Shown here is a 151-nucleotide sequence from Burkholderia vietnamiensis, a member of the family "Burkholderia sRNA 37". Pairs were carried over by alignment from the consensus structure, which was predicted with RNAfold.

[Rfam]
RNA sequence: GUCGGCCGCGCCCUACCGGUCCACCGCAGCGUCCGCCGCCACGUGCGGCGGGCAUCUCCGUCCCCCGCGGGGUCCGACGUGCCCGGGCGAGCGGGCACGUUGGCGCGGGCCGAUUUCGCGCCCCGGACGUUUACGUCCGGGGCGCUUUUGU
Numbered sequence: 001g002u003c004g005g006c007c008g009c010g011c012c013c014u015a016c017c018g019g020u021c022c023a024c025c026g027c028a029g030c031g032u033c034c035g036c037c038g039c040c041a042c043g044u045g046c047g048g049c050g051g052g053c054a055u056c057u058c059c060g061u062c063c064c065c066c067g068c069g070g071g072g073u074c075c076g077a078c079g080u081g082c083c084c085g086g087g088c089g090a091g092c093g094g095g096c097a098c099g100u101u102g103g104c105g106c107g108g109g110c111c112g113a114u115u116u117c118g119c120g121c122c123c124c125g126g127a128c129g130u131u132u133a134c135g136u137c138c139g140g141g142g143c144g145c146u147u148u149u150g151u
Stems, first nucleotide, its partner, number of pairs: 003112003006108006017076003021072002024070004031053009054061002077100005083094003120143010
Dot-bracket structure: ..(((((((((.....(((.((.((((...(((((((((.....)))))))))((....)).....)))))).)))(((((.(((......))).)))))..)))))).))).......((((((((((....))))))))))........
Rfam's curators write: Identified by RNA-seq, RACE and Northern blot. Strongly expressed in biofilm. NCBI's taxonomy places the organism under Bacteria, Pseudomonadati, Burkholderiales, Burkholderia cepacia complex, Burkholderia vietnamiensis.